[Rfam]
RNA sequence: GAAUAUAUUUGGCAAAGCAUGGGAAACCAUGUGACGCAAAACUAAAGGGCCUUUAAAAUGGCAGCCAGUUGCAAAC
Numbered sequence: 001g002a003a004u005a006u007a008u009u010u011g012g013c014a015a016a017g018c019a020u021g022g023g024a025a026a027c028c029a030u031g032u033g034a035c036g037c038a039a040a041a042c043u044a045a046a047g048g049g050c051c052u053u054u055a056a057a058a059u060g061g062c063a064g065c066c067a068g069u070u071g072c073a074a075a076c
Stems, first nucleotide, its partner, number of pairs: 012037002017032006040070004047066002049062003

The record is a 76-nucleotide RNA from Cetobacterium ceti, which matches "c-di-GMP-I riboswitch aptamer" in Rfam. The family's consensus secondary structure is taken from published work.